[Rfam]
Overview
The family of this 302-nucleotide RNA from Artemisia annua is "Plant signal recognition particle RNA".
RNA sequence: ACCGGGUUUGGUAGCGCUUGCCUGUAACUCAAGUGAGGGUAUUAAUAUGGCCGGACGUGAGUCUUCCUAGACUGGUUGGUUCCGCUAGCGCAUAAACUGGCUUGCCCGUUCCAAGUUGCGAGUUGGAUCAUGUGACUUGAGCGAAAGCUCGGGUUUCGUGAUUCCUAAAGUAGAGGGCACUGCGUUAGGCUGGUUUCACAGAGCUGCGAAAACCUCUCGCUCAUGACAGUGGAAGGAUAACGAGCCGGGGCUCUACGGGAUCGUAUAACCUUCUAGGAUCUCUCAAUUGAACAACCAUUUUU
Numbered sequence: 001a002c003c004g005g006g007u008u009u010g011g012u013a014g015c016g017c018u019u020g021c022c023u024g025u026a027a028c029u030c031a032a033g034u035g036a037g038g039g040u041a042u043u044a045a046u047a048u049g050g051c052c053g054g055a056c057g058u059g060a061g062u063c064u065u066c067c068u069a070g071a072c073u074g075g076u077u078g079g080u081u082c083c084g085c086u087a088g089c090g091c092a093u094a095a096a097c098u099g100g101c102u103u104g105c106c107c108g109u110u111c112c113a114a115g116u117u118g119c120g121a122g123u124u125g126g127a128u129c130a131u132g133u134g135a136c137u138u139g140a141g142c143g144a145a146a147g148c149u150c151g152g153g154u155u156u157c158g159u160g161a162u163u164c165c166u167a168a169a170g171u172a173g174a175g176g177g178c179a180c181u182g183c184g185u186u187a188g189g190c191u192g193g194u195u196u197c198a199c200a201g202a203g204c205u206g207c208g209a210a211a212a213c214c215u216c217u218c219g220c221u222c223a224u225g226a227c228a229g230u231g232g233a234a235g236g237a238u239a240a241c242g243a244g245c246c247g248g249g250g251c252u253c254u255a256c257g258g259g260a261u262c263g264u265a266u267a268a269c270c271u272u273c274u275a276g277g278a279u280c281u282c283u284c285a286a287u288u289g290a291a292c293a294a295c296c297a298u299u300u301u302u
Stems, first nucleotide, its partner, number of pairs: 001040003004023004010017001028037003044301002047298004053292001056289002058285004065278007074270004078262007087254002090251001093249001097248008106236002109234005115227004120222004125164008134155009165170001172217005181210001183208003190201003

Notes
Rfam classes the family as a non-coding RNA gene. It scores 219 bits against the family's covariance model. Rfam 15.1 lists 4,988 matches to the family in 266 species. NCBI's taxonomy places the organism under Eukaryota, eudicotyledons, Anthemideae, Artemisiinae, Artemisia.